[Rfam]
RNA: Guanidine-II riboswitch aptamer (mini-ykkC)
RNA sequence: UCGGAAGGACGACCUUCCGUAUGCCUUCUCUCCCGGGGACGACCCCG
Dot-bracket structure: .(((((((....)))))))..............(((((....)))))